[Rfam]
RNA sequence: UCAGAGAGUGAUGAGUUGCACUGAUCAUUUGGGGUGUUUGCUGCAGUGGCAUCAUCUCCCCAAUCCGACCCAACCUGGGGACACACAGUGUGCACAGGGGCCAUCUGACUCAGC
Numbered sequence: 001u002c003a004g005a006g007a008g009u010g011a012u013g014a015g016u017u018g019c020a021c022u023g024a025u026c027a028u029u030u031g032g033g034g035u036g037u038u039u040g041c042u043g044c045a046g047u048g049g050c051a052u053c054a055u056c057u058c059c060c061c062a063a064u065c066c067g068a069c070c071c072a073a074c075c076u077g078g079g080g081a082c083a084c085a086c087a088g089u090g091u092g093c094a095c096a097g098g099g100g101c102c103a104u105c106u107g108a109c110u111c112a113g114c
Base pairs, nucleotide, nucleotide: 006111007110008109025068026067029063030062031061032060034058036056040053042051043050044049
Background:
This 114-nucleotide sequence from Anabas testudineus belongs to the Rfam family "Small nucleolar RNA SNORD67". On this family, see Huttenhofer et al., EMBO J 2001: "RNomics: an experimental approach that identifies 201 candidates for novel, small, non-messenger RNAs in mouse". The base pairs follow the family's consensus structure. It is annotated as a C/D-box small nucleolar RNA. snoRNA HBII-166 belongs to the C/D family of snoRNAs.